Shown here is a 74-nucleotide RNA from Muricoccus nepalensis, a member of the family "Makes More Granules Regulator RNA (mmgR)". It is annotated as a small RNA. Lineage of the source: Bacteria > Pseudomonadota > Alphaproteobacteria > Acetobacterales > Muricoccus. The match comes from Rfam's covariance-model search (62 bits).
[Rfam]
RNA sequence: CGUCGUUGUCUUUCUUGGACGUUUCCUCCCUAAACUCGGCGGUGCCCUCGGGCACCGCCUCUUUUUUUGCCCAU
Numbered sequence: 001c002g003u004c005g006u007u008g009u010c011u012u013u014c015u016u017g018g019a020c021g022u023u024u025c026c027u028c029c030c031u032a033a034a035c036u037c038g039g040c041g042g043u044g045c046c047c048u049c050g051g052g053c054a055c056c057g058c059c060u061c062u063u064u065u066u067u068u069g070c071c072c073a074u
Base pairs, nucleotide, nucleotide: 008020009019010018011017038059039058040057041056042055043054044053045052046051